[Rfam]
Record summary: This 120-nucleotide sequence from Sporolactobacillus laevolacticus belongs to the Rfam family "SAM riboswitch aptamer (S box leader)". Clan: SAM clan. Taxonomically the source falls in Sporolactobacillus laevolacticus (Bacteria, Bacilli, Caryophanales, Sporolactobacillus). Rfam's curators write: The SAM riboswitch is found upstream of a number of genes which code for proteins involved in methionine or cysteine biosynthesis in Gram-positive bacteria. Pairs were carried over by alignment from the consensus structure, which is taken from published work. A search with the family's covariance model found it, with a score of 64 bits. Rfam links the family to the GO term regulation of gene expression.
RNA sequence: CUCUUAUUCCGAGUAGGCAGAGGGACAGGCCCGAUGAAGCCCGGCAACCGGUCGAAUAGCGGCACGGUGCUAACCUGCAGAGAAAAGGGAAGGUUACGCUCUUUCUUCUGAUAAUAAGAG
Numbered sequence: 001c002u003c004u005u006a007u008u009c010c011g012a013g014u015a016g017g018c019a020g021a022g023g024g025a026c027a028g029g030c031c032c033g034a035u036g037a038a039g040c041c042c043g044g045c046a047a048c049c050g051g052u053c054g055a056a057u058a059g060c061g062g063c064a065c066g067g068u069g070c071u072a073a074c075c076u077g078c079a080g081a082g083a084a085a086a087g088g089g090a091a092g093g094u095u096a097c098g099c100u101c102u103u104u105c106u107u108c109u110g111a112u113a114a115u116a117a118g119a120g
Base pairs, nucleotide, nucleotide: 001120002119003118004117005116006115007114008113013042016041017040018039022032023031024030026077027076028075029074043071044070045069046068048067049066051063052062053061054060078110079109080108081107082106